[Rfam]
RNA sequence: UUCUUAUCAAGAGAGGUAGAGGGACUGGCCCGAUGACACCUCAGCAACCAGCCGUGAACAAGGUAUGGUGCUAAUUCCAGCAAGCUGAAAAAGGCUUGGGCGAUAAGAG
Numbered sequence: 001u002u003c004u005u006a007u008c009a010a011g012a013g014a015g016g017u018a019g020a021g022g023g024a025c026u027g028g029c030c031c032g033a034u035g036a037c038a039c040c041u042c043a044g045c046a047a048c049c050a051g052c053c054g055u056g057a058a059c060a061a062g063g064u065a066u067g068g069u070g071c072u073a074a075u076u077c078c079a080g081c082a083a084g085c086u087g088a089a090a091a092a093g094g095c096u097u098g099g100g101c102g103a104u105a106a107g108a109g
Stems, first nucleotide, its partner, number of pairs: 001109008013042005021031003025080004043072004048068002050064001052062001081098006